RNA sequence: GGGAGCGGUUAUCCCUCCCCAUCGGCUAUAAUGUGCGCGAGCGCCCAUCCACCCCAAGCGCCCUUAUGGCUUGACCCGCCCGGUUGUCCCCCCGGGCGGGUC
Numbered sequence: 001g002g003g004a005g006c007g008g009u010u011a012u013c014c015c016u017c018c019c020c021a022u023c024g025g026c027u028a029u030a031a032u033g034u035g036c037g038c039g040a041g042c043g044c045c046c047a048u049c050c051a052c053c054c055c056a057a058g059c060g061c062c063c064u065u066a067u068g069g070c071u072u073g074a075c076c077c078g079c080c081c082g083g084u085u086g087u088c089c090c091c092c093c094g095g096g097c098g099g100g101u102c
Base pairs, nucleotide, nucleotide: 001019002018003017004016005015025070026069027068028067029066030065031064035061036060037059038058073102074101075100076099077098078097079096080095081094082093083092
The family of this 102-nucleotide sequence from Afipia sp. GAS231 is "Rhizobiales-2 RNA". Lineage of the source: Bacteria > Pseudomonadota > Hyphomicrobiales > Nitrobacteraceae > Afipia. Rfam classes the family as a small RNA.